[Rfam]
RNA sequence: AAAAGUUGAAUUAAAGCUGAUAACUGUGAUAACUCUGUAGGCAUUACUUCGAACAAGUGAAUUAAAAGAAUCCGAAUGAAAGCCCUUCUACGAGUCAUUAGCCUAGUCAUUAUUAACGUCGUCGUGAUUAUUAUCACGCCGUGCGGGGCUACGCUCGGAGAAAGAAAGGCUUAAAAAUCAAGCCUGAUUUCGAAAGAACCCCCGCACCGAAAGGUCCGGGGGUUUUUUUUUGGCAAGACAAUAUGAGAGAGGAACAGAAUAUGAACAGUAGCAUAAAAUGCUGUUGUUCCCAGCGAGAG
Numbered sequence: 001a002a003a004a005g006u007u008g009a010a011u012u013a014a015a016g017c018u019g020a021u022a023a024c025u026g027u028g029a030u031a032a033c034u035c036u037g038u039a040g041g042c043a044u045u046a047c048u049u050c051g052a053a054c055a056a057g058u059g060a061a062u063u064a065a066a067a068g069a070a071u072c073c074g075a076a077u078g079a080a081a082g083c084c085c086u087u088c089u090a091c092g093a094g095u096c097a098u099u100a101g102c103c104u105a106g107u108c109a110u111u112a113u114u115a116a117c118g119u120c121g122u123c124g125u126g127a128u129u130a131u132u133a134u135c136a137c138g139c140c141g142u143g144c145g146g147g148g149c150u151a152c153g154c155u156c157g158g159a160g161a162a163a164g165a166a167a168g169g170c171u172u173a174a175a176a177a178u179c180a181a182g183c184c185u186g187a188u189u190u191c192g193a194a195a196g197a198a199c200c201c202c203c204g205c206a207c208c209g210a211a212a213g214g215u216c217c218g219g220g221g222g223u224u225u226u227u228u229u230u231u232g233g234c235a236a237g238a239c240a241a242u243a244u245g246a247g248a249g250a251g252g253a254a255c256a257g258a259a260u261a262u263g264a265a266c267a268g269u270a271g272c273a274u275a276a277a278a279u280g281c282u283g284u285u286g287u288u289c290c291c292a293g294c295g296a297g298a299g
Base pairs, nucleotide, nucleotide: 005033006032007031008030012026016021037073039071042068044065045064046063048061049060050059084252085251086250088247089246092242098238099237101234102233103232105230106229108118110116120141121140123138124137126135127134128133142159144157145156146155147154162190163189168185169184171182172181193228194227195226196225197224198223199222200221201220202219203218204217206215207214208213253285254284255283256282257281259279261274262273263272

A member of the RNA family "Soft rot Enterobacteriaceae Rev 39 5'UTR" from Erwinia sorbitola, 299 nucleotides long. About the family: From bacteria cultured under starvation conditions. The family's consensus secondary structure was predicted with RNAfold. Its family is annotated with cellular response to starvation in the Gene Ontology. Rfam classes the family as a cis-regulatory element. NCBI's taxonomy places the organism under Bacteria, Pseudomonadota, Enterobacterales, Erwiniaceae, Erwinia. It scores 134 bits against the family's covariance model.